[Rfam]
RNA sequence: AACUUUCUGAAUCCGUGCAGAGAUUUCGUGAGAAACCAACCCAUUAGGGUUGAUCAGACUUCCUAGAUAAGUGAAGUU
Numbered sequence: 001a002a003c004u005u006u007c008u009g010a011a012u013c014c015g016u017g018c019a020g021a022g023a024u025u026u027c028g029u030g031a032g033a034a035a036c037c038a039a040c041c042c043a044u045u046a047g048g049g050u051u052g053a054u055c056a057g058a059c060u061u062c063c064u065a066g067a068u069a070a071g072u073g074a075a076g077u078u
Stems, first nucleotide, its partner, number of pairs: 002077005008071001011068003017062001020061003024058003028054002
The record is a 78-nucleotide RNA sequence from Schistosoma margrebowiei, which matches "mir-3492 microRNA precursor family" in Rfam. The family's consensus secondary structure was predicted with RNAalifold. Rfam links the family to the GO terms RISC complex and miRNA-mediated post-transcriptional gene silencing.